Record summary:
Rfam assigns this 72-nucleotide RNA to the family "tRNA". It is annotated as a transfer RNA. The sequence is in the family's curated seed alignment. The literature on the family includes a 1993 paper in Trends Biochem Sci by Hou, "The tertiary structure of tRNA and the development of the genetic code".
[Rfam]
RNA sequence: UCCCGUAUGGUCUAGUGGUUAGGAUACCUGGCUUUCACCCAGGAGGCUCGGGUUCGAUUCCCGGUACGGGAA
Numbered sequence: 001u002c003c004c005g006u007a008u009g010g011u012c013u014a015g016u017g018g019u020u021a022g023g024a025u026a027c028c029u030g031g032c033u034u035u036c037a038c039c040c041a042g043g044a045g046g047c048u049c050g051g052g053u054u055c056g057a058u059u060c061c062c063g064g065u066a067c068g069g070g071a072a
Stems, first nucleotide, its partner, number of pairs: 001071007010025004027043005048064005